Bacterial large signal recognition particle RNA: a 265-nucleotide RNA sequence from Gaiella occulta. The match comes from Rfam's covariance-model search (159 bits). Its Rfam clan is "SRP clan". It is annotated as a non-coding RNA gene.
[Rfam]
RNA sequence: UCGCGCUAGGUGGGGAGGCAGCGGUUCCCUGAACCCGAAAUCCGCUCCAGCGGGACCGAACGCCGUCCGAGGGGCGGCUUCAUCGGGAUUGGGUCUGCGCACGAGGUGUUGACAGGCAGGGUCCCGCGCACUGGGAGCGUUCGAACCGCGUCAGGUCCGGAAGGAAGCAGCGCUAAGGACUCCCUCCCAGGUGCCGCGGCUCCGCCCCGCCCGAGCCGGCGACGCAGGUUCCUCCGGGGAAGCUCGCUUCGACGACGGAGCGCGC
Numbered sequence: 001u002c003g004c005g006c007u008a009g010g011u012g013g014g015g016a017g018g019c020a021g022c023g024g025u026u027c028c029c030u031g032a033a034c035c036c037g038a039a040a041u042c043c044g045c046u047c048c049a050g051c052g053g054g055a056c057c058g059a060a061c062g063c064c065g066u067c068c069g070a071g072g073g074g075c076g077g078c079u080u081c082a083u084c085g086g087g088a089u090u091g092g093g094u095c096u097g098c099g100c101a102c103g104a105g106g107u108g109u110u111g112a113c114a115g116g117c118a119g120g121g122u123c124c125c126g127c128g129c130a131c132u133g134g135g136a137g138c139g140u141u142c143g144a145a146c147c148g149c150g151u152c153a154g155g156u157c158c159g160g161a162a163g164g165a166a167g168c169a170g171c172g173c174u175a176a177g178g179a180c181u182c183c184c185u186c187c188c189a190g191g192u193g194c195c196g197c198g199g200c201u202c203c204g205c206c207c208c209g210c211c212c213g214a215g216c217c218g219g220c221g222a223c224g225c226a227g228g229u230u231c232c233u234c235c236g237g238g239g240a241a242g243c244u245c246g247c248u249u250c251g252a253c254g255a256c257g258g259a260g261c262g263c264g265c
Stems, first nucleotide, its partner, number of pairs: 002264006009057003012030006019023001034054004063258005071250005077243005083237004091230002095227005103220001105217003115211003119207004124199005129191001132189005137182001139180004148173004156165003
Dot-bracket structure: .((((((.(((((((((.(...).))))))...((((.............))))))).....(((((...(((((.(((((.((((....((..(((((...(.(((.......(((.((((.((((((..((((((.((((.....((((....(((....)))....))))...)))).)..))))).)...)))))....)))).)))...)))..)..))))).))...)))).)))))..)))))...))))))))))).